[Rfam]
RNA sequence: UUUGGCGUUCGGAUUGUUAUCGACGAUGGCGUUGCCGACGGCAUGCAGCAAGUGGGUUUUACCCAGACCGGUCCCGCCAUA
Numbered sequence: 001u002u003u004g005g006c007g008u009u010c011g012g013a014u015u016g017u018u019a020u021c022g023a024c025g026a027u028g029g030c031g032u033u034g035c036c037g038a039c040g041g042c043a044u045g046c047a048g049c050a051a052g053u054g055g056g057u058u059u060u061a062c063c064c065a066g067a068c069c070g071g072u073c074c075c076g077c078c079a080u081a
Stems, first nucleotide, its partner, number of pairs: 005042002009038004016032002020029002052077003056074001061072003

The family of this 81-nucleotide RNA from Vibrio proteolyticus is "antisense RNA of dnaA mRNA". A reference for the family is Dadzie et al. (2013), "Identification and characterization of a cis-encoded antisense RNA associated with the replication process of Salmonella enterica serovar Typhi", PLoS One. A search with the family's covariance model found it, with a score of 58 bits.